[Rfam]
RNA sequence: GCCGAGCACAGUCACGUGAGCUUGUGACCCAAGUGGGGGCAUUAAGGUGGUGGAACAUGGAGUCAGUCAAUUGGGUCAGAUUUGUGAUGGCUGAAUGCCCUGCUUGGCCUAUCCAAGUUGGGAGCUUAACCCUAGUGACGUAGGUGUAGGCCUGGGUUCAUUGGGUCCUAAAGUGGCGGAGACUGCGUGAGGCUAGUUCCAGUUAGCAACGAACACUGCCCGCUCUUAUCAGUGGAAGGAUAAUGAGUCGGUGCCAUCCGGAUCCAAUAGUGCCCGAUUGGCUGCGCUCCUAUUGAACCAUUACCUUU
Numbered sequence: 001g002c003c004g005a006g007c008a009c010a011g012u013c014a015c016g017u018g019a020g021c022u023u024g025u026g027a028c029c030c031a032a033g034u035g036g037g038g039g040c041a042u043u044a045a046g047g048u049g050g051u052g053g054a055a056c057a058u059g060g061a062g063u064c065a066g067u068c069a070a071u072u073g074g075g076u077c078a079g080a081u082u083u084g085u086g087a088u089g090g091c092u093g094a095a096u097g098c099c100c101u102g103c104u105u106g107g108c109c110u111a112u113c114c115a116a117g118u119u120g121g122g123a124g125c126u127u128a129a130c131c132c133u134a135g136u137g138a139c140g141u142a143g144g145u146g147u148a149g150g151c152c153u154g155g156g157u158u159c160a161u162u163g164g165g166u167c168c169u170a171a172a173g174u175g176g177c178g179g180a181g182a183c184u185g186c187g188u189g190a191g192g193c194u195a196g197u198u199c200c201a202g203u204u205a206g207c208a209a210c211g212a213a214c215a216c217u218g219c220c221c222g223c224u225c226u227u228a229u230c231a232g233u234g235g236a237a238g239g240a241u242a243a244u245g246a247g248u249c250g251g252u253g254c255c256a257u258c259c260g261g262a263u264c265c266a267a268u269a270g271u272g273c274c275c276g277a278u279u280g281g282c283u284g285c286g287c288u289c290c291u292a293u294u295g296a297a298c299c300a301u302u303a304c305c306u307u308u
Stems, first nucleotide, its partner, number of pairs: 001040003004023004009018002028037003044307010056295002058292003061288003064284003068280009079264006088256003092253002099251002102248005108239002112236004117230001119228007129166004134161001137158003141154005168173001175220005184213001186211003
Rfam assigns this 308-nucleotide sequence from Carnegiea gigantea to the family "Plant signal recognition particle RNA". Its family is annotated with SRP-dependent cotranslational protein targeting to membrane, signal sequence recognition and signal recognition particle, endoplasmic reticulum targeting in the Gene Ontology. Taxonomically the source falls in Carnegiea (Eukaryota, Magnoliopsida, Gunneridae, Pentapetalae). For this family Rfam cites "Towards the structure of the mammalian signal recognition particle" (Wild et al., Curr Opin Struct Biol, 2002). Rfam classes the family as a non-coding RNA gene. A search with the family's covariance model found it, with a score of 178 bits.